[Rfam]
RNA: mir-1421 microRNA precursor family
Organism: Cimex lectularius
RNA sequence: UCGUGAGAUGCGGUCUGAUGUGAUGUAGUGUGAUGUAGUACAUCACACCAGACCGCAUCUCACGAU
Dot-bracket structure: ..(((((.(((((((((.(((.(((((...........))))).))).))))))))).)))))...